[Rfam]
RNA sequence: GAUUUAUACAGAAGAGGGGAGAGACCAGGCUCGGUGAACCUCUGGCAACCUACCACACGGCAAGGUGCUAAUUCCUGCCUAAAGUAACCGUUACGGCGGAUCAUUA
Numbered sequence: 001g002a003u004u005u006a007u008a009c010a011g012a013a014g015a016g017g018g019g020a021g022a023g024a025c026c027a028g029g030c031u032c033g034g035u036g037a038a039c040c041u042c043u044g045g046c047a048a049c050c051u052a053c054c055a056c057a058c059g060g061c062a063a064g065g066u067g068c069u070a071a072u073u074c075c076u077g078c079c080u081a082a083a084g085u086a087a088c089c090g091u092u093a094c095g096g097c098g099g100a101u102c103a104u105u106a
Base pairs, nucleotide, nucleotide: 002105004103006101007100013043014042015041016040017039021032022031023030026077027076028075029074044069045068046067047066049065050064051062053060054059073098078095080093081092082091
RNA: SAM riboswitch aptamer (S box leader)
Organism: Fibrisoma limi